A member of the RNA family "Bacterial RNase P class A" from Sulfurospirillum cavolei, 410 nucleotides long.
NCBI's taxonomy places the organism under Bacteria, Pseudomonadati, Epsilonproteobacteria, Campylobacterales, Sulfurospirillum.
RNA sequence: AAGGUACGGCAGGUGAUUGCUUGGACGCGUGCGUUCAAGAGGAAAGUCCGGGCUACAUGUGAGACAUGGUUCCGUCUAACGGACGGCUAGGGUAACCUAAGGGACAGUGCAACAGAGAGUAAACUACCAUGCUGACUAUCAUUCUUGCGAAAGCAUAGCUUUUGUGAGAUGAAUUGGAGACGAGCUUUGUUUGUCUCCAAGAAGAUAGUUUUAUGGAAAAGGUGAAACGGCGGGGUAAGAGCCCACCAGCGCUUUGAGUAAUCAUCGCGGCUAUGUAAACCCAACCUGUAGCAAGAAGGGACGGUUUUGGUCUCACGCUUCAUAAACCCUUCGCUAGAGGCUUAUCGUAAGAUAAGUCGUAGAUAAAUAAUCACCCCAGACAGAACCCGGCUUAUCGCCGUACCUUUUGU
Numbered sequence: 001a002a003g004g005u006a007c008g009g010c011a012g013g014u015g016a017u018u019g020c021u022u023g024g025a026c027g028c029g030u031g032c033g034u035u036c037a038a039g040a041g042g043a044a045a046g047u048c049c050g051g052g053c054u055a056c057a058u059g060u061g062a063g064a065c066a067u068g069g070u071u072c073c074g075u076c077u078a079a080c081g082g083a084c085g086g087c088u089a090g091g092g093u094a095a096c097c098u099a100a101g102g103g104a105c106a107g108u109g110c111a112a113c114a115g116a117g118a119g120u121a122a123a124c125u126a127c128c129a130u131g132c133u134g135a136c137u138a139u140c141a142u143u144c145u146u147g148c149g150a151a152a153g154c155a156u157a158g159c160u161u162u163u164g165u166g167a168g169a170u171g172a173a174u175u176g177g178a179g180a181c182g183a184g185c186u187u188u189g190u191u192u193g194u195c196u197c198c199a200a201g202a203a204g205a206u207a208g209u210u211u212u213a214u215g216g217a218a219a220a221g222g223u224g225a226a227a228c229g230g231c232g233g234g235g236u237a238a239g240a241g242c243c244c245a246c247c248a249g250c251g252c253u254u255u256g257a258g259u260a261a262u263c264a265u266c267g268c269g270g271c272u273a274u275g276u277a278a279a280c281c282c283a284a285c286c287u288g289u290a291g292c293a294a295g296a297a298g299g300g301a302c303g304g305u306u307u308u309g310g311u312c313u314c315a316c317g318c319u320u321c322a323u324a325a326a327c328c329c330u331u332c333g334c335u336a337g338a339g340g341c342u343u344a345u346c347g348u349a350a351g352a353u354a355a356g357u358c359g360u361a362g363a364u365a366a367a368u369a370a371u372c373a374c375c376c377c378a379g380a381c382a383g384a385a386c387c388c389g390g391c392u393u394a395u396c397g398c399c400g401u402a403c404c405u406u407u408u409g410u
Stems, first nucleotide, its partner, number of pairs: 001406010011395001012375007020039008044393003048390005053291004068286004072086005087101001088099004102282002107280002109276003124221002127216005134209001229247002232244003249271001250269003255264003295332004303328005339358008
Its family is annotated with tRNA processing, ribonuclease P activity and dimeric ribonuclease P complex in the Gene Ontology. It is annotated as a ribozyme.